[Rfam]
The record is an 83-nucleotide RNA from Argiope bruennichi, which matches "Vault RNA" in Rfam. The source organism's lineage runs through Eukaryota, Eumetazoa, Arachnida, Entelegynae and Argiope. The base pairs follow the family's consensus structure, which is taken from published work.
RNA sequence: ACGUAGGUAUGGCCGUGUGGUUACUUCGCGAUUCAACUUUCAACUGAACAACACUUCGACCACUGGCGCAGUCCUACGUUUUU
Numbered sequence: 001a002c003g004u005a006g007g008u009a010u011g012g013c014c015g016u017g018u019g020g021u022u023a024c025u026u027c028g029c030g031a032u033u034c035a036a037c038u039u040u041c042a043a044c045u046g047a048a049c050a051a052c053a054c055u056u057c058g059a060c061c062a063c064u065g066g067c068g069c070a071g072u073c074c075u076a077c078g079u080u081u082u083u
Stems, first nucleotide, its partner, number of pairs: 002078006012067004017063004026059003